[Rfam]
RNA sequence: UUGAUGCCGUAACAUCAAGCGAACUUAACCAGCUAAUUUAGUUCGUCUUAAUGUGGCCUAU
Numbered sequence: 001u002u003g004a005u006g007c008c009g010u011a012a013c014a015u016c017a018a019g020c021g022a023a024c025u026u027a028a029c030c031a032g033c034u035a036a037u038u039u040a041g042u043u044c045g046u047c048u049u050a051a052u053g054u055g056g057c058c059u060a061u
Stems, first nucleotide, its partner, number of pairs: 001018006023042003027039002